The family of this 100-nucleotide RNA sequence from Jezberella montanilacus is "Glycine riboswitch aptamer". Rfam describes the family as follows. This family represents the bacterial glycine riboswitch. Pairs were carried over by alignment from the consensus structure. A search with the family's covariance model found it, with a score of 68 bits.

[Rfam]
RNA sequence: UAACCCAGAUCGGGAGAGACCGUAGAAGACCCAAGUCUUGUGCGGCGCCGAAGGAGCAACCGCCCCGGAAACUCUCAGGCAAAAGGACCGAUGGGCGCAG
Numbered sequence: 001u002a003a004c005c006c007a008g009a010u011c012g013g014g015a016g017a018g019a020c021c022g023u024a025g026a027a028g029a030c031c032c033a034a035g036u037c038u039u040g041u042g043c044g045g046c047g048c049c050g051a052a053g054g055a056g057c058a059a060c061c062g063c064c065c066c067g068g069a070a071a072c073u074c075u076c077a078g079g080c081a082a083a084a085g086g087a088c089c090g091a092u093g094g095g096c097g098c099a100g
Stems, first nucleotide, its partner, number of pairs: 006095001009092005020045004047080003050076002054074003060068002